Small nucleolar RNA SNORA72: a 133-nucleotide RNA from Pteropus alecto. NCBI's taxonomy places the organism under Eukaryota, Opisthokonta, Craniata, Chiroptera, Pteropus. Its family is annotated with RNA processing and nucleolus in the Gene Ontology. About the family: U72 is a member of the H/ACA class of snoRNAs. The snoRNA gene is located in intron 4 of the ribosomal L30 protein gene in human, mouse and chicken. The family's RNA type in Rfam is H/ACA-box small nucleolar RNA. The family has 29 seed sequences and 1,541 matches in Rfam 15.1.
RNA sequence: AUGCAAAUAUUCUCACUGUUUUGAUUUCGUAAUAAUCAGGGCAGGCUAAACAAUCGCUACAUUAAGAACCAUGCAUGUGUCCCCAGACCUAGUUCUUUUCCUAGGUCUGGUUUUAUAAAUGCUGGUGAUAGAC
Numbered sequence: 001a002u003g004c005a006a007a008u009a010u011u012c013u014c015a016c017u018g019u020u021u022u023g024a025u026u027u028c029g030u031a032a033u034a035a036u037c038a039g040g041g042c043a044g045g046c047u048a049a050a051c052a053a054u055c056g057c058u059a060c061a062u063u064a065a066g067a068a069c070c071a072u073g074c075a076u077g078u079g080u081c082c083c084c085a086g087a088c089c090u091a092g093u094u095c096u097u098u099u100c101c102u103a104g105g106u107c108u109g110g111u112u113u114u115a116u117a118a119a120u121g122c123u124g125g126u127g128a129u130a131g132a133c
Base pairs, nucleotide, nucleotide: 003057004056016044017043018042019041020040021039022038023037024036025035026034068126069125070124071123073122074121083110084109085108086107087106088105089104090103091102092101